RNA sequence: AACUAGUGGUAACAAAGCAGUUACUACUUGAGUAUGUUACUGAUAAGCAGGCAGAACUCAGAUUACGUAGAAAAUGUCCUUUUUCUACGUAGUCUGAGUUUUUUUUCUAGAAAGGAGUAUUUU
Numbered sequence: 001a002a003c004u005a006g007u008g009g010u011a012a013c014a015a016a017g018c019a020g021u022u023a024c025u026a027c028u029u030g031a032g033u034a035u036g037u038u039a040c041u042g043a044u045a046a047g048c049a050g051g052c053a054g055a056a057c058u059c060a061g062a063u064u065a066c067g068u069a070g071a072a073a074a075u076g077u078c079c080u081u082u083u084u085c086u087a088c089g090u091a092g093u094c095u096g097a098g099u100u101u102u103u104u105u106u107c108u109a110g111a112a113a114g115g116a117g118u119a120u121u122u123u
Stems, first nucleotide, its partner, number of pairs: 002033003005028009034122001036120002040117002044113001048110001050108001053102019

cis-regulatory element of the bglG/LicT operon: a 123-nucleotide RNA sequence from Clostridium paraputrificum. Lineage of the source: Bacteria > Bacillota > Clostridia > Eubacteriales > Clostridium.